[Rfam]
RNA sequence: GGAUUGAUGAUGACUCCUGCAGAUACAUUCUUUGGAAGUUGAACAAAAUGAGUGAAAACCCCAUACCAUCAUUCUCUUCAUUACUGAGGUCC
Numbered sequence: 001g002g003a004u005u006g007a008u009g010a011u012g013a014c015u016c017c018u019g020c021a022g023a024u025a026c027a028u029u030c031u032u033u034g035g036a037a038g039u040u041g042a043a044c045a046a047a048a049u050g051a052g053u054g055a056a057a058a059c060c061c062c063a064u065a066c067c068a069u070c071a072u073u074c075u076c077u078u079c080a081u082u083a084c085u086g087a088g089g090u091c092c
Base pairs, nucleotide, nucleotide: 001092002091003090004089005088026054027053028052029051030050032046033045034044
RNA: Small nucleolar RNA SNORD116
Organism: Oryctolagus cuniculus